[Rfam]
RNA: Clostridiales-1 RNA
Organism: Firmicutes bacterium AF22-6AC
RNA sequence: UCUAAAUAAUUUUUCAAUAAAGACACCGCACGGCUGCUUGCAGCCAGUGCGGUGUCUUUAUUAGAAAAACAAAACCACAUGAGCAAGUAGGGCGAUAGCCCGGAUUGCGAAUGUGGUUUUGCAGUUUCGGGAGUGCGAAGCACGGAGAAACUGUUAUUUAGA
Number, nucleotide and partner (000 for none) at each position: 001u162002c161003u160004a159005a158006a157007u156008a000009a000010u069011u068012u067013u066014u000015c000016a062017a061018u060019a059020a058021a057022g056023a055024c054025a053026c052027c051028g050029c049030a048031c047032g045033g044034c043035u042036g041037c000038u000039u000040g000041c036042a035043g034044c033045c032046a000047g031048u030049g029050c028051g027052g026053u025054g024055u023056c022057u021058u020059u019060a018061u017062u016063a000064g000065a000066a013067a012068a011069a010070c000071a000072a000073a118074a117075c116076c115077a114078c113079a112080u111081g000082a000083g108084c107085a106086a105087g000088u000089a000090g101091g100092g099093c098094g000095a000096u000097a000098g093099c092100c091101c090102g000103g000104a000105u086106u085107g084108c083109g000110a000111a080112u079113g078114u077115g076116g075117u074118u073119u000120u000121g000122c153123a152124g151125u150126u149127u148128c147129g000130g000131g000132a000133g143134u142135g141136c140137g000138a000139a000140g136141c135142a134143c133144g000145g000146a000147g128148a127149a126150a125151c124152u123153g122154u000155u000156a007157u006158u005159u004160a003161g002162a001